The family of this 459-nucleotide sequence from Leminorella richardii is "cspA thermoregulator".
Rfam classes the family as an RNA thermoregulator.
For this family Rfam cites "The cspA mRNA is a thermosensor that modulates translation of the cold-shock protein CspA" (Giuliodori et al., Mol Cell, 2010).
Rfam 15.1 lists 2,094 matches to the family in 1,285 species.
Pairs were carried over by alignment from the consensus structure, which is taken from published work.
RNA sequence: AUCGGCCUGUGUUGCAGACCUAUUUAUGUGUACGACAUUAGAGUAAAGCUAGUUCCCUCUUAAAAGCCGUUAUCGUUUGAUUUCGCUUGUUAGAUGAACAUCUUCUUAGUGCCUCCAUAAGUAAACUCUGAGAAUCUGGCCGUAAUGCCUAUACCCUAUGAUGUAUGGCAGGUUAACUAAAUUAAAGGUAAGUUAAAGAUGUCCAAGAAAACUGGCAAAGUUAAAUGGUUCAAUGAAAGCAAAGGUUUUGGUUUUAUUGAGCAAGAUGAUGGUGGUAAAGACGUAUUCGUACAUUUUUCUGCAAUCAUGAGUGAAGGUUUCAAAACUCUGGCUGAAGGCCAGAAAGUGGAAUAUACCAUUCAGGAUAGCCCACGCGGUCCAGCCGCUGGUGACGUUGUUGCGCUGUAAUUAGCCACUUCGUUAUCACGAGAAGCCCGCAUCAUGAUGCGGGUUUUUUUU
Numbered sequence: 001a002u003c004g005g006c007c008u009g010u011g012u013u014g015c016a017g018a019c020c021u022a023u024u025u026a027u028g029u030g031u032a033c034g035a036c037a038u039u040a041g042a043g044u045a046a047a048g049c050u051a052g053u054u055c056c057c058u059c060u061u062a063a064a065a066g067c068c069g070u071u072a073u074c075g076u077u078u079g080a081u082u083u084c085g086c087u088u089g090u091u092a093g094a095u096g097a098a099c100a101u102c103u104u105c106u107u108a109g110u111g112c113c114u115c116c117a118u119a120a121g122u123a124a125a126c127u128c129u130g131a132g133a134a135u136c137u138g139g140c141c142g143u144a145a146u147g148c149c150u151a152u153a154c155c156c157u158a159u160g161a162u163g164u165a166u167g168g169c170a171g172g173u174u175a176a177c178u179a180a181a182u183u184a185a186a187g188g189u190a191a192g193u194u195a196a197a198g199a200u201g202u203c204c205a206a207g208a209a210a211a212c213u214g215g216c217a218a219a220g221u222u223a224a225a226u227g228g229u230u231c232a233a234u235g236a237a238a239g240c241a242a243a244g245g246u247u248u249u250g251g252u253u254u255u256a257u258u259g260a261g262c263a264a265g266a267u268g269a270u271g272g273u274g275g276u277a278a279a280g281a282c283g284u285a286u287u288c289g290u291a292c293a294u295u296u297u298u299c300u301g302c303a304a305u306c307a308u309g310a311g312u313g314a315a316g317g318u319u320u321c322a323a324a325a326c327u328c329u330g331g332c333u334g335a336a337g338g339c340c341a342g343a344a345a346g347u348g349g350a351a352u353a354u355a356c357c358a359u360u361c362a363g364g365a366u367a368g369c370c371c372a373c374g375c376g377g378u379c380c381a382g383c384c385g386c387u388g389g390u391g392a393c394g395u396u397g398u399u400g401c402g403c404u405g406u407a408a409u410u411a412g413c414c415a416c417u418u419c420g421u422u423a424u425c426a427c428g429a430g431a432a433g434c435c436c437g438c439a440u441c442a443u444g445a446u447g448c449g450g451g452u453u454u455u456u457u458u459u
Stems, first nucleotide, its partner, number of pairs: 004020002007017003027264001031261001033259002047255002051253003055250001056245002060243002069240003074235004079231002083228002088201004095195002103188002106185004111136001114133001147169003203215003268360005280288002292348005298343004302338001306331001309328002313326001366381001368379001371377001382406002385403001387400004410423002413420001429456012